[Rfam]
RNA sequence: UCAUAGAACCAGGGGUGCUGGAAUUGGCCGGCUGAGAUUGUAUCCCACAAGAUACUGACCCUUAUACCUGAUCUGGAUAAUGCCAGCGUAGGAAUCGCCAAUUGGUUUUGG
Numbered sequence: 001u002c003a004u005a006g007a008a009c010c011a012g013g014g015g016u017g018c019u020g021g022a023a024u025u026g027g028c029c030g031g032c033u034g035a036g037a038u039u040g041u042a043u044c045c046c047a048c049a050a051g052a053u054a055c056u057g058a059c060c061c062u063u064a065u066a067c068c069u070g071a072u073c074u075g076g077a078u079a080a081u082g083c084c085a086g087c088g089u090a091g092g093a094a095u096c097g098c099c100a101a102u103u104g105g106u107u108u109u110g111g
Base pairs, nucleotide, nucleotide: 006099011062012061013060014059017032018031019030020029021028040055041054042053043052067092068091069090070089073086074085075084076083
Rfam assigns this 111-nucleotide RNA from Paenibacillus sp. FSL H7-0737 to the family "TPP riboswitch aptamer (THI element)". NCBI's taxonomy places the organism under Bacteria, Bacillati, Bacilli, Caryophanales, Paenibacillus.